[Rfam]
RNA sequence: UAAAUAUAAAAAUAAGGGCCUGAAGAAAUGGCUCCUCUGUUUACAGCAUACCCAACAGGAAUCUGGGUUCAUUGUGACAAGAGGCACAAAACUUGUGGCCUUCCUAUGAGCAAAUACCCAACACAU
Number, nucleotide and partner (000 for none) at each position: 001u050002a049003a000004a000005u000006a000007u000008a000009a042010a041011a040012a000013u000014a000015a036016g035017g034018g032019c031020c030021u000022g000023a000024a000025g000026a000027a000028a000029u000030g020031g019032c018033u000034c017035c016036u015037c000038u000039g000040u011041u010042u009043a000044c000045a000046g000047c000048a000049u002050a001051c000052c000053c000054a000055a000056c000057a000058g000059g000060a000061a000062u000063c000064u000065g000066g119067g118068u000069u116070c000071a000072u000073u112074g111075u110076g000077a000078c108079a107080a000081g101082a000083g099084g000085c097086a096087c095088a094089a093090a000091a000092c000093u089094u088095g087096u086097g085098g000099c083100c000101u081102u000103c000104c000105u000106a000107u079108g078109a000110g075111c074112a073113a000114a000115u000116a069117c000118c067119c066120a000121a000122c000123a000124c000125a000126u000
Small nucleolar RNA SNORA11: a 126-nucleotide sequence from Balaenoptera musculus. Its family is annotated with nucleolus and RNA processing in the Gene Ontology. The literature on the family includes a 2005 paper in Nucleic Acids Res by Gu et al., "A novel experimental approach for systematic identification of box H/ACA snoRNAs from eukaryotes". Rfam classes the family as an H/ACA-box small nucleolar RNA. Pairs were carried over by alignment from the consensus structure, which was predicted with RNAalifold. U107 (SNORA11) is a member of the H/ACA class of snoRNAs that guide the sites of modification of uridines to pseudouridines. The family has 35 seed sequences and 2,014 matches in Rfam 15.1. The organism belongs to Balaenoptera, within Eukaryota.